[Rfam]
RNA sequence: GUGUGUAUUGACAGGUGGUGGAACAAAUAUGAGUUUGUAUAGUAGUCGAACAAAAUGAAACUCAUAUUAGUUCUACCUCCUGUUGAAGCCCACA
Numbered sequence: 001g002u003g004u005g006u007a008u009u010g011a012c013a014g015g016u017g018g019u020g021g022a023a024c025a026a027a028u029a030u031g032a033g034u035u036u037g038u039a040u041a042g043u044a045g046u047c048g049a050a051c052a053a054a055a056u057g058a059a060a061c062u063c064a065u066a067u068u069a070g071u072u073c074u075a076c077c078u079c080c081u082g083u084u085g086a087a088g089c090c091c092a093c094a
Stems, first nucleotide, its partner, number of pairs: 001093003005089002008086008017077008026068011
The family of this 94-nucleotide RNA sequence from Brassica rapa is "MIR9560 microRNA precursor family".